[Rfam]
RNA sequence: AUCAGACAAAGGCAAACCUGCUGAAAAGCCGGGACGCAAAGUCACAGAUCUAACGUUCUACGGAGCUAUGAUGGCUGGACUGCCUGA
Numbered sequence: 001a002u003c004a005g006a007c008a009a010a011g012g013c014a015a016a017c018c019u020g021c022u023g024a025a026a027a028g029c030c031g032g033g034a035c036g037c038a039a040a041g042u043c044a045c046a047g048a049u050c051u052a053a054c055g056u057u058c059u060a061c062g063g064a065g066c067u068a069u070g071a072u073g074g075c076u077g078g079a080c081u082g083c084c085u086g087a
Stems, first nucleotide, its partner, number of pairs: 012037002017032002020029003040081004045077003048072003055066004
Record summary: This 87-nucleotide RNA from Metabacillus indicus belongs to the Rfam family "c-di-GMP-I riboswitch aptamer". It scores 79 bits against the family's covariance model. Lineage of the source: Bacteria > Bacillota > Caryophanales > Bacillaceae > Metabacillus.